[Rfam]
RNA: Small nucleolar RNA snoR136
Organism: Vigna radiata
RNA sequence: AAGUCUUCAGCCUUCUUAGAGACAUUUGCUUGCACGUUGUCCUUUGUGUUAGUCAAUCUUUAACUGAAGACGAGAUGUGCGUUCUCCUCGCUAUCCAAUGUGACAAUUUUGAUGCCGCAAUUGGACGUCGGGGAACAAAAUCC
Numbered sequence: 001a002a003g004u005c006u007u008c009a010g011c012c013u014u015c016u017u018a019g020a021g022a023c024a025u026u027u028g029c030u031u032g033c034a035c036g037u038u039g040u041c042c043u044u045u046g047u048g049u050u051a052g053u054c055a056a057u058c059u060u061u062a063a064c065u066g067a068a069g070a071c072g073a074g075a076u077g078u079g080c081g082u083u084c085u086c087c088u089c090g091c092u093a094u095c096c097a098a099u100g101u102g103a104c105a106a107u108u109u110u111g112a113u114g115c116c117g118c119a120a121u122u123g124g125a126c127g128u129c130g131g132g133g134a135a136c137a138a139a140a141u142c143c
Stems, first nucleotide, its partner, number of pairs: 003071003008066003018059002026056003029052002034049003081136007089127002094125005104114002